[Rfam]
RNA sequence: ACAUCGCGCACGCUGAGUUCCUCAACCGUGAGGGUCGCCCACGAAGCGGCGCGGACGAGGAAGCCGGGGAACCAAUCUAUUGGGGUGAAUCGGCGGGCGCGGUCGGCCUUGAGUCGCUGAACGCGCAGUCGUAGGGCGUCCUUCCCAGCCCGAAUCCGUCAGCUCACCUGGUAAGCGUCGAGUGAGAAGGG
Numbered sequence: 001a002c003a004u005c006g007c008g009c010a011c012g013c014u015g016a017g018u019u020c021c022u023c024a025a026c027c028g029u030g031a032g033g034g035u036c037g038c039c040c041a042c043g044a045a046g047c048g049g050c051g052c053g054g055a056c057g058a059g060g061a062a063g064c065c066g067g068g069g070a071a072c073c074a075a076u077c078u079a080u081u082g083g084g085g086u087g088a089a090u091c092g093g094c095g096g097g098c099g100c101g102g103u104c105g106g107c108c109u110u111g112a113g114u115c116g117c118u119g120a121a122c123g124c125g126c127a128g129u130c131g132u133a134g135g136g137c138g139u140c141c142u143u144c145c146c147a148g149c150c151c152g153a154a155u156c157c158g159u160c161a162g163c164u165c166a167c168c169u170g171g172u173a174a175g176c177g178u179c180g181a182g183u184g185a186g187a188a189g190g191g
Stems, first nucleotide, its partner, number of pairs: 011177004018062006063172006073082002083157003091131004134151004

The record is a 191-nucleotide sequence from Microlunatus parietis, which matches "c-di-AMP riboswitch aptamer (ydaO/yuaA leader)" in Rfam. NCBI's taxonomy places the organism under Bacteria, Bacillati, Actinomycetes, Propionibacteriales, Microlunatus.